[Rfam]
RNA sequence: CUCCUGUGACGAAUCUUGAGUUUGUGCCACGUGUCUGGGCCACUGAUCCAAGUGAUGGGAAUGAGGAACUGAGGAG
Numbered sequence: 001c002u003c004c005u006g007u008g009a010c011g012a013a014u015c016u017u018g019a020g021u022u023u024g025u026g027c028c029a030c031g032u033g034u035c036u037g038g039g040c041c042a043c044u045g046a047u048c049c050a051a052g053u054g055a056u057g058g059g060a061a062u063g064a065g066g067a068a069c070u071g072a073g074g075a076g
Stems, first nucleotide, its partner, number of pairs: 001076004
Shown here is a 76-nucleotide RNA from Neogobius melanostomus, a member of the family "Small nucleolar RNA SNORD66". It is annotated as a C/D-box small nucleolar RNA. The family's consensus secondary structure was predicted with RNAalifold. For this family Rfam cites "RNomics: an experimental approach that identifies 201 candidates for novel, small, non-messenger RNAs in mouse" (Huttenhofer et al., EMBO J, 2001). snoRNA HBII-142 is part of the C/D family of snoRNAs. It is the human orthologue of the mouse MBII-142 snoRNA and is predicted to guide 2'O-ribose methylation of small 18S rRNA at residue C1272. The family has 20 seed sequences and 1,346 matches in Rfam 15.1. A search with the family's covariance model found it, with a score of 75 bits.